[Rfam]
RNA: Small nucleolar RNA SNORD53/SNORD92
Organism: Mesocricetus auratus
RNA sequence: AUGCUGUGAUGAUAGUCACAUGGUUUCGCAUCUGGCUGAAUUUCAGUGAUGACACCUUUCUCUUGGCUGUCUGAGCAU
Number, nucleotide and partner (000 for none) at each position: 001a078002u077003g076004c075005u000006g000007u000008g000009a000010u000011g000012a000013u000014a000015g000016u000017c000018a000019c000020a000021u000022g000023g000024u000025u000026u000027c000028g000029c000030a000031u000032c000033u000034g000035g000036c000037u000038g000039a000040a000041u000042u000043u000044c000045a000046g000047u000048g000049a000050u000051g000052a000053c000054a000055c000056c000057u000058u000059u000060c000061u000062c000063u000064u000065g000066g000067c000068u000069g000070u000071c000072u000073g000074a000075g004076c003077a002078u001